[Rfam]
RNA: Small nucleolar RNA snoR111
RNA sequence: AAGAGAAAAAGGGAGACAGUUCUGUGUCUCCUGGGUUGAGAAGAACAUUGAGGUAAAGCAAAAAAUCAAUGGCCAAGAUAUCCUUUCAGUCGUAUCUCUUUAUAUUCGCGAUUCGAUUGUUGCUCGUCCACAU
Numbered sequence: 001a002a003g004a005g006a007a008a009a010a011g012g013g014a015g016a017c018a019g020u021u022c023u024g025u026g027u028c029u030c031c032u033g034g035g036u037u038g039a040g041a042a043g044a045a046c047a048u049u050g051a052g053g054u055a056a057a058g059c060a061a062a063a064a065a066u067c068a069a070u071g072g073c074c075a076a077g078a079u080a081u082c083c084u085u086u087c088a089g090u091c092g093u094a095u096c097u098c099u100u101u102a103u104a105u106u107c108g109c110g111a112u113u114c115g116a117u118u119g120u121u122g123c124u125c126g127u128c129c130a131c132a133u
Stems, first nucleotide, its partner, number of pairs: 007037002013030006071129002074126001076124002080117003089112005097104001